[Rfam]
Rfam assigns this 71-nucleotide RNA sequence from Polaribacter sp. MED152 to the family "Flavo-1 RNA". The family's consensus secondary structure is taken from published work. By type it is a small RNA. Taxonomically the source falls in Polaribacter (Bacteria, Pseudomonadati, Bacteroidota, Flavobacteriia).
RNA sequence: GUUUAGCCCUGAUUGAAACGAUAUCCUUUUUUGUUUUUACAAAAAAGAUUAAGUGUAAAGCAGGAAAUUGC
Numbered sequence: 001g002u003u004u005a006g007c008c009c010u011g012a013u014u015g016a017a018a019c020g021a022u023a024u025c026c027u028u029u030u031u032u033g034u035u036u037u038u039a040c041a042a043a044a045a046a047g048a049u050u051a052a053g054u055g056u057a058a059a060g061c062a063g064g065a066a067a068u069u070g071c
Stems, first nucleotide, its partner, number of pairs: 009063003013059002018054002023049003029044006